[Rfam]
RNA: mir-3130 microRNA precursor family
RNA sequence: CUUGUCAUGUCUUACCCAGUCUCCGGUGCAGCCUGUUGUCAAGGCUGCACCGGAGACUGGGUAAGACAUGACAAG
Number, nucleotide and partner (000 for none) at each position: 001c075002u074003u073004g072005u071006c070007a069008u068009g067010u066011c065012u064013u063014a062015c061016c060017c059018a058019g057020u056021c055022u054023c053024c052025g051026g050027u049028g048029c047030a046031g045032c044033c043034u042035g000036u000037u000038g000039u000040c000041a000042a034043g033044g032045c031046u030047g029048c028049a027050c026051c025052g024053g023054a022055g021056a020057c019058u018059g017060g016061g015062u014063a013064a012065g011066a010067c009068a008069u007070g006071a005072c004073a003074a002075g001